Source information:
Shown here is a 69-nucleotide RNA sequence from Carnegiea gigantea, a member of the family "Plastid-clpP 5UTR RNA". Plastid clpP is a non-coding RNA (ncRNA) recognised in plastids. Rfam classes the family as a cis-regulatory element. Lineage of the source: Eukaryota > Tracheophyta > Spermatophyta > Gunneridae > Carnegiea. A search with the family's covariance model found it, with a score of 64 bits.
RNA sequence: AAUGUUUUUUGUCGGAACAAAAAGAAACAAAUCUAUUCUAUACCUGACGAGUAGCAAUACACAAUGGGG
Numbered sequence: 001a002a003u004g005u006u007u008u009u010u011g012u013c014g015g016a017a018c019a020a021a022a023a024g025a026a027a028c029a030a031a032u033c034u035a036u037u038c039u040a041u042a043c044c045u046g047a048c049g050a051g052u053a054g055c056a057a058u059a060c061a062c063a064a065u066g067g068g069g
Base pairs, nucleotide, nucleotide: 003022006019008017009016010015043068044067045066051060052059053058
Dot-bracket structure: ..(..(.(((....))).)..)....................(((.....(((....))).....))).